SAM riboswitch aptamer (S box leader): an 87-nucleotide RNA from Actinomadura rudentiformis.
RNA sequence: CGUUCAUCCAGAGGACUCGAGGGACCUGGCCCCAUGACGGUCCGGCAACCUGCACACGCAAGGUGCCAAUGCCAGGAUCGAUGAGGA
Numbered sequence: 001c002g003u004u005c006a007u008c009c010a011g012a013g014g015a016c017u018c019g020a021g022g023g024a025c026c027u028g029g030c031c032c033c034a035u036g037a038c039g040g041u042c043c044g045g046c047a048a049c050c051u052g053c054a055c056a057c058g059c060a061a062g063g064u065g066c067c068a069a070u071g072c073c074a075g076g077a078u079c080g081a082u083g084a085g086g087a
Stems, first nucleotide, its partner, number of pairs: 003085006013043005021032003026075004044067004049063002051060003071079001